Rfam assigns this 72-nucleotide RNA sequence from Geotrypetes seraphini to the family "Mammalian CPEB3 ribozyme". The mammalian CPEB3 ribozyme is a self cleaving RNA located in the second intron of the CPEB3 gene which belongs to a family of genes regulating messenger RNA polyadenylation.
RNA sequence: UGUGUCAAUCCAGGGACCACAGCAGAAAUAUUCACACUACAUUUCCUGUCAGAUGAAUCUGUAAAUUCUGUU
Number, nucleotide and partner (000 for none) at each position: 001u000002g000003u000004g000005u000006c000007a000008a000009u000010c000011c000012a000013g046014g045015g044016a043017c000018c000019a000020c000021a072022g071023c070024a069025g068026a067027a066028a000029u039030a038031u000032u000033c000034a000035c000036a000037c000038u030039a029040c000041a000042u000043u016044u015045c014046c013047u000048g000049u000050c061051a060052g059053a058054u000055g000056a000057a000058u053059c052060u051061g050062u000063a000064a000065a000066u027067u026068c025069u024070g023071u022072u021